[Rfam]
RNA sequence: AAGGUGUGCUCAGAGCAGGUGGCCUGAAGAAUGGUGCCUCUGUUUACAACACACCCAAGAAGAACUUAGGGUCAGUGUGACUAGAGGCACAAAACUUGUGACUUCCUUUGACCAAAUGUCCUAUACGU
Numbered sequence: 001a002a003g004g005u006g007u008g009c010u011c012a013g014a015g016c017a018g019g020u021g022g023c024c025u026g027a028a029g030a031a032u033g034g035u036g037c038c039u040c041u042g043u044u045u046a047c048a049a050c051a052c053a054c055c056c057a058a059g060a061a062g063a064a065c066u067u068a069g070g071g072u073c074a075g076u077g078u079g080a081c082u083a084g085a086g087g088c089a090c091a092a093a094a095c096u097u098g099u100g101a102c103u104u105c106c107u108u109u110g111a112c113c114a115a116a117u118g119u120c121c122u123a124u125a126c127g128u
Stems, first nucleotide, its partner, number of pairs: 003055006013045007021037001022035003069121004076114002081110001084104003088100005
Shown here is a 128-nucleotide RNA sequence from Octodon degus, a member of the family "Small nucleolar RNA SNORA11". It is annotated as an H/ACA-box small nucleolar RNA. The organism belongs to Octodon, within Eukaryota. From the family's description: U107 (SNORA11) is a member of the H/ACA class of snoRNAs that guide the sites of modification of uridines to pseudouridines. This snoRNA was identified by RT-PCR from blood cells and its expression confirmed by Northern blot analysis. There is no predicted target for this guide snRNA. The match comes from Rfam's covariance-model search (111 bits). Pairs were carried over by alignment from the consensus structure, which was predicted with RNAalifold. Its family is annotated with RNA processing and nucleolus in the Gene Ontology.